[Rfam]
RNA sequence: CACCCGGGACGUCCCGGGUGCAUUCCCUAAAGUUAGGGGACGUCCCCU
Numbered sequence: 001c002a003c004c005c006g007g008g009a010c011g012u013c014c015c016g017g018g019u020g021c022a023u024u025c026c027c028u029a030a031a032g033u034u035a036g037g038g039g040a041c042g043u044c045c046c047c048u
Stems, first nucleotide, its partner, number of pairs: 001020008035048005
Dot-bracket structure: ((((((((....))))))))..............(((((....)))))
Rfam assigns this 48-nucleotide RNA sequence from Taxus chinensis to the family "Guanidine-II riboswitch aptamer (mini-ykkC)". The source organism's lineage runs through Eukaryota, Tracheophyta, Spermatophyta, Pinopsida and Taxus. Rfam links the family to the GO term regulation of gene expression. The family's consensus secondary structure is taken from published work. It scores 32 bits against the family's covariance model.